[Rfam]
Nucleotides: 082
Base pairs, nucleotide, nucleotide: 001081002080003079004078005077006076007075010026011025012024028044029043030042031041032040058074059073060072061071062070
Number, partner (000 for none) and nucleotide at each position: 001081g002080c003079g004078c005077a006076c007075g008000u009000g010026g011025c012024g013000g014000a015000a016000u017000u018000g019000g020000u021000a022000g023000a024012c025011g026010u027000g028044c029043a030042g031041g032040u033000c034000u035000c036000a037000g038000a039000a040032g041031c042030c043029u044028g045000u046000g047000c048000c049000u050000u051000c052000g053000g054000g055000c056000g057000u058074g059073g060072g061071a062070g063000u064000u065000c066000g067000a068000c069000u070062c071061u072060c073059c074058c075007c076006g077005u078004g079003c080002g081001c082000a
Rfam assigns this 82-nucleotide sequence from Pontibacter lucknowensis to the family "tRNA". The source organism's lineage runs through Bacteria, Pseudomonadati, Cytophagia, Hymenobacteraceae and Pontibacter. Gene Ontology term of the family: triplet codon-amino acid adaptor activity. The match comes from Rfam's covariance-model search (54 bits). It is annotated as a transfer RNA.